[Rfam]
RNA sequence: AAAAUUAUUGCAGGAGAGAAGCAUUCCGCUCGCCGAAGGAGCAACCGCCCCGGAAACUUUCAGGCAAAAGGACUGUGAUAAUUAC
Numbered sequence: 001a002a003a004a005u006u007a008u009u010g011c012a013g014g015a016g017a018g019a020a021g022c023a024u025u026c027c028g029c030u031c032g033c034c035g036a037a038g039g040a041g042c043a044a045c046c047g048c049c050c051c052g053g054a055a056a057c058u059u060u061c062a063g064g065c066a067a068a069a070g071g072a073c074u075g076u077g078a079u080a081a082u083u084a085c
Stems, first nucleotide, its partner, number of pairs: 006080008020030003032065003035061002039059003045053002
This 85-nucleotide RNA sequence from Acinetobacter rudis belongs to the Rfam family "Glycine riboswitch aptamer". Pairs were carried over by alignment from the consensus structure. Gene Ontology term of the family: glycine biosynthetic process.